[Rfam]
RNA sequence: CCACCCGAGGGGCGCUGCAGCAGGUUCCAGAACCUGUCAGGCUCGGAUGGGGCGUUUCCUCGAACGCAUCAACGGCGCCCAUUCGCA
Number, nucleotide and partner (000 for none) at each position: 001c000002c049003a048004c000005c046006c045007g044008a043009g000010g000011g000012g000013c000014g000015c000016u000017g000018c000019a000020g000021c036022a035023g034024g033025u032026u031027c000028c000029a000030g000031a026032a025033c024034c023035u022036g021037u000038c000039a000040g000041g000042c000043u008044c007045g006046g005047a000048u003049g002050g000051g000052g000053c000054g000055u000056u000057u000058c000059c000060u000061c000062g000063a000064a000065c000066g000067c000068a000069u000070c000071a000072a000073c000074g000075g000076c000077g000078c000079c000080c000081a000082u000083u000084c000085g000086c000087a000